[Rfam]
RNA sequence: CCCACCGUUGAAACGGCGGGCUAUUUUCAGCCAUCCCUACGGGAUU
Dot-bracket structure: (((.((((....)))).)))............(((((...))))).

Acido-Lenti-1 RNA: a 46-nucleotide sequence from Caldithrix abyssi. It scores 51 bits against the family's covariance model. The organism belongs to Caldithrix abyssi, within Bacteria.